[Rfam]
RNA: Phenylalanine leader peptide
RNA sequence: CAAGCAUGAAUGCUGCUAUUUUCCGUUUCUUUUUUUACUUUAGCACCUGUUUCCCGGGGGCUUGCGCGUAAGUCAAGAAACGAAAAAUAGCGCUAGAGCCUCCCGAAGUGGAGGCUUUUUUUAU
Numbered sequence: 001c002a003a004g005c006a007u008g009a010a011u012g013c014u015g016c017u018a019u020u021u022u023c024c025g026u027u028u029c030u031u032u033u034u035u036u037a038c039u040u041u042a043g044c045a046c047c048u049g050u051u052u053c054c055c056g057g058g059g060g061c062u063u064g065c066g067c068g069u070a071a072g073u074c075a076a077g078a079a080a081c082g083a084a085a086a087a088u089a090g091c092g093c094u095a096g097a098g099c100c101u102c103c104c105g106a107a108g109u110g111g112a113g114g115c116u117u118u119u120u121u122u123a124u
Stems, first nucleotide, its partner, number of pairs: 015091004020086003024082008035071004046058003060065001095118009